[Rfam]
RNA sequence: UGGAAAUGAUGAAAUAGAGAUAAUUGGGUGUUGAAUGUUGUGUGAUUGGAAAAUUUUAAUGUGUGAGUUAAGUAAACUUUAUAGAUAAUUGUGUGUGUGUGUGUAUGUGUGUGUCCUCGCUCAUGGAGGCUAUUGAAAGGGAGCACUGAUUGGUGAUGCUGAUAUUGGAGUGCAUCUGAGGCUGUUGUAGAAAUAGACGGGCUGUUGAUUACAACAUUGCCGAUGAUUAUAACCCAAGAACAGCUCACCUAAGUAGCCUAGCACCCUACAAUCUCUAACAGGUUCAUUAAACAUGGUCCUGUGAUCUGAUCCAA
Number, nucleotide and partner (000 for none) at each position: 001u313002g312003g311004a310005a000006a000007u000008g000009a000010u000011g000012a000013a000014a000015u000016a000017g000018a000019g000020a000021u000022a000023a000024u000025u000026g000027g000028g000029u000030g000031u000032u000033g000034a000035a000036u000037g000038u000039u000040g000041u000042g000043u000044g000045a000046u000047u000048g000049g000050a000051a000052a000053a000054u000055u000056u000057u000058a000059a000060u000061g000062u000063g000064u000065g000066a000067g000068u000069u000070a000071a000072g000073u000074a000075a000076a000077c000078u000079u000080u000081a000082u000083a000084g000085a000086u000087a000088a000089u000090u000091g000092u000093g000094u000095g000096u000097g000098u000099g000100u000101g000102u000103g000104u000105a000106u000107g000108u000109g000110u000111g000112u000113g000114u000115c000116c000117u000118c000119g000120c000121u000122c000123a000124u000125g000126g000127a000128g000129g000130c000131u000132a000133u000134u000135g000136a000137a000138a000139g000140g000141g000142a000143g000144c000145a000146c000147u000148g000149a000150u000151u000152g000153g000154u000155g000156a000157u000158g000159c000160u000161g000162a000163u000164a000165u000166u000167g000168g000169a000170g000171u000172g000173c000174a000175u000176c000177u000178g000179a000180g000181g000182c000183u216184g215185u214186u213187g212188u211189a210190g209191a000192a206193a205194u204195a203196g202197a000198c000199g000200g000201g000202c196203u195204g194205u193206u192207g000208a000209u190210u189211a188212c187213a186214a185215c184216a183217u000218u000219g000220c000221c000222g000223a000224u000225g000226a000227u000228u000229a000230u000231a000232a000233c000234c000235c000236a000237a000238g000239a000240a000241c000242a000243g000244c000245u000246c000247a000248c000249c000250u000251a000252a000253g000254u000255a000256g000257c000258c000259u000260a000261g000262c000263a000264c000265c000266c000267u000268a000269c000270a000271a000272u000273c000274u000275c000276u000277a000278a000279c000280a000281g000282g000283u000284u000285c000286a000287u000288u000289a000290a000291a000292c000293a000294u000295g000296g000297u000298c000299c000300u000301g000302u000303g000304a000305u000306c000307u000308g000309a000310u004311c003312c002313a001314a000
Small Cajal body-specific RNA 7: a 314-nucleotide sequence from Neomonachus schauinslandi.
It scores 350 bits against the family's covariance model.
The base pairs follow the family's consensus structure.
It is annotated as a small Cajal body RNA.